[Rfam]
Molybdenum/Tungsten riboswitch aptamer (Moco RNA motif): a 122-nucleotide RNA sequence from Desulfofundulus thermobenzoicus. NCBI's taxonomy places the organism under Bacteria, Bacillota, Clostridia, Eubacteriales, Desulfofundulus. The family's consensus secondary structure is taken from published work. The literature on the family includes a 2008 paper in Mol Microbiol by Regulski et al., "in molybdenum cofactor and tungsten cofactor metabolism".
RNA sequence: GAACAUCGAGCUCUCCGAGCCAAAAUACCUAAGGCACUGCGGAGCUAUGGUUUUUGGCCGUCAGGGUGCGCUGGGAAACCAGCGUGCCUUCCAUUGCGAAAAGGAGGGCUGAGCCGGGCAAC
Numbered sequence: 001g002a003a004c005a006u007c008g009a010g011c012u013c014u015c016c017g018a019g020c021c022a023a024a025a026u027a028c029c030u031a032a033g034g035c036a037c038u039g040c041g042g043a044g045c046u047a048u049g050g051u052u053u054u055u056g057g058c059c060g061u062c063a064g065g066g067u068g069c070g071c072u073g074g075g076a077a078a079c080c081a082g083c084g085u086g087c088c089u090u091c092c093a094u095u096g097c098g099a100a101a102a103g104g105a106g107g108g109c110u111g112a113g114c115c116g117g118g119c120a121a122c
Stems, first nucleotide, its partner, number of pairs: 006113001011108006019058007027051003033046003064089011090099002